Shown here is a 103-nucleotide sequence, a member of the family "L4-Archaeoglobi ribosomal protein leades". A reference for the family is Eckert and Weinberg (2020), "Discovery of 20 novel ribosomal leader candidates in bacteria and archaea", BMC Microbiol. It is annotated as a cis-regulatory leader.
RNA sequence: CUGAAGGCCGCGUCCGGGUCAAUUGCGGACUGCAACACCCGAUCUCCCUGCUUGUGCCACCAACGAUGGAGGAUCCAAGUAAGGGAGAACGCGUCACCGUCAG
Numbered sequence: 001c002u003g004a005a006g007g008c009c010g011c012g013u014c015c016g017g018g019u020c021a022a023u024u025g026c027g028g029a030c031u032g033c034a035a036c037a038c039c040c041g042a043u044c045u046c047c048c049u050g051c052u053u054g055u056g057c058c059a060c061c062a063a064c065g066a067u068g069g070a071g072g073a074u075c076c077a078a079g080u081a082a083g084g085g086a087g088a089a090c091g092c093g094u095c096a097c098c099g100u101c102a103g
Base pairs, nucleotide, nucleotide: 001103002102003101004100009093010092011091012090013089015041016040017039018038023035024034025033026032027031043088044087045086046085047084048083049082050080051079052078053077054076